[Rfam]
RNA: DUF805b RNA
Organism: Chryseobacterium sp. 3008163
RNA sequence: AAAGCGAGAUCCGAAAAGCUUAAAAAGAGUAGGAA
Numbered sequence: 001a002a003a004g005c006g007a008g009a010u011c012c013g014a015a016a017a018g019c020u021u022a023a024a025a026a027g028a029g030u031a032g033g034a035a
Base pairs, nucleotide, nucleotide: 002021003020004019005018010034011033012032